[Rfam]
RNA sequence: GUGAAAUUGAUCACAUGCAAACAUAUACCCCUUUGUUUGACCGUGAAAAAUUUCUCCCAUCCCCUUUGUUCGUAAUGAAAAGCCUUCAUCUGCUGAUGAAGGCUUUUC
Numbered sequence: 001g002u003g004a005a006a007u008u009g010a011u012c013a014c015a016u017g018c019a020a021a022c023a024u025a026u027a028c029c030c031c032u033u034u035g036u037u038u039g040a041c042c043g044u045g046a047a048a049a050a051u052u053u054c055u056c057c058c059a060u061c062c063c064c065u066u067u068g069u070u071c072g073u074a075a076u077g078a079a080a081a082g083c084c085u086u087c088a089u090c091u092g093c094u095g096a097u098g099a100a101g102g103c104u105u106u107u108c
Stems, first nucleotide, its partner, number of pairs: 003054006011046004018039006070075001079106011

RNA Staph. aureus E (RoxS): a 108-nucleotide RNA sequence from Jeotgalibacillus sp. R-1-5s-1. It was shown to be regulated by the presence of nitric oxide (NO). Pairs were carried over by alignment from the consensus structure, which is taken from published work. The source organism's lineage runs through Bacteria, Bacillota, Bacilli, Caryophanaceae and Jeotgalibacillus. Gene Ontology term of the family: regulation of translational initiation.